[Rfam]
RNA sequence: ACAGUCUGAAAAUCACUUCGGCUCUUCUGUGGCCCCUGGUGCGCUAACUGUGCUGACAGCAGAGGGAGCAUUAAACUCAUUGCCCACAGUAAAGUGUGGGGAGUGAUACCCAUGUUCCUAUAAUU
Number, nucleotide and partner (000 for none) at each position: 001a000002c000003a000004g000005u000006c050007u000008g048009a000010a045011a000012a000013u000014c041015a040016c039017u000018u000019c000020g034021g033022c032023u031024c000025u000026u000027c000028u000029g000030u000031g023032g022033c021034c020035c000036c000037u000038g000039g016040u015041g014042c000043g000044c000045u010046a000047a000048c008049u000050g006051u000052g000053c000054u000055g000056a000057c000058a000059g000060c000061a000062g000063a000064g000065g118066g000067a116068g115069c114070a113071u112072u000073a000074a000075a000076c000077u106078c105079a104080u103081u102082g000083c000084c000085c098086a097087c096088a000089g000090u000091a000092a000093a000094g000095u000096g087097u086098g085099g000100g000101g000102a081103g080104u079105g078106a077107u000108a000109c000110c000111c000112a071113u070114g069115u068116u067117c000118c065119u000120a000121u000122a000123a000124u000125u000

Small nucleolar RNA ACA64: a 125-nucleotide RNA from Bucco capensis. The base pairs follow the family's consensus structure, which was predicted with WAR. A search with the family's covariance model found it, with a score of 61 bits. On this family, see Schattner et al., RNA 2006: "A computational screen for mammalian pseudouridylation guide H/ACA RNAs". Rfam classes the family as an H/ACA-box small nucleolar RNA. The source organism's lineage runs through Eukaryota, Chordata, Tetrapoda, Amniota and Bucco.